RNA sequence: CUGUCUUAAGGUUCAUCCCCUGAUCAAGGAUGCCCAGAGCCGAGAGACAGCAACAGAUUAAUAACAGUCAACCCACUGGGACGGUUGGCCAUUUAAGAAGUGAGGAUUCAUUCUUAUGGCCAAUAUUUAUGGGAAGUUCCGUGUGGAUUCUCA
Numbered sequence: 001c002u003g004u005c006u007u008a009a010g011g012u013u014c015a016u017c018c019c020c021u022g023a024u025c026a027a028g029g030a031u032g033c034c035c036a037g038a039g040c041c042g043a044g045a046g047a048c049a050g051c052a053a054c055a056g057a058u059u060a061a062u063a064a065c066a067g068u069c070a071a072c073c074c075a076c077u078g079g080g081a082c083g084g085u086u087g088g089c090c091a092u093u094u095a096a097g098a099a100g101u102g103a104g105g106a107u108u109c110a111u112u113c114u115u116a117u118g119g120c121c122a123a124u125a126u127u128u129a130u131g132g133g134a135a136g137u138u139c140c141g142u143g144u145g146g147a148u149u150c151u152c153a
Stems, first nucleotide, its partner, number of pairs: 001050005007044001010041004014032005033080005066149004071144002088120005099112005
A member of the RNA family "DUF2800 RNA", 153 nucleotides long.